RNA sequence: UUUAGUCUUCGGGGCAGGGUGAGAUUCCCGACCGGUGGUAAAGUCCACGAGCUUGAUGAGUGAACGAUUAUUUUUAAUUUGAACGAACGCCGUAUCAAUGAAAAAAUAAUCUGCCCUCACGAGCAGGAACUGGUGAAAUUCCAGUACCGACAGUACAGUCUGGAUGAAAGAAGAUAAAG
Numbered sequence: 001u002u003u004a005g006u007c008u009u010c011g012g013g014g015c016a017g018g019g020u021g022a023g024a025u026u027c028c029c030g031a032c033c034g035g036u037g038g039u040a041a042a043g044u045c046c047a048c049g050a051g052c053u054u055g056a057u058g059a060g061u062g063a064a065c066g067a068u069u070a071u072u073u074u075u076a077a078u079u080u081g082a083a084c085g086a087a088c089g090c091c092g093u094a095u096c097a098a099u100g101a102a103a104a105a106a107u108a109a110u111c112u113g114c115c116c117u118c119a120c121g122a123g124c125a126g127g128a129a130c131u132g133g134u135g136a137a138a139u140u141c142c143a144g145u146a147c148c149g150a151c152a153g154u155a156c157a158g159u160c161u162g163g164a165u166g167a168a169a170g171a172a173g174a175u176a177a178a179g
Stems, first nucleotide, its partner, number of pairs: 003177001005175006017029003031159002033149002035048004043147002051124005129145005151162003
This 179-nucleotide RNA sequence from Targowskia paracuniculus belongs to the Rfam family "FMN riboswitch aptamer (RFN element)". Rfam links the family to the GO term FMN binding. Taxonomically the source falls in Targowskia (Bacteria, Pseudomonadati, Pasteurellales, Pasteurellaceae).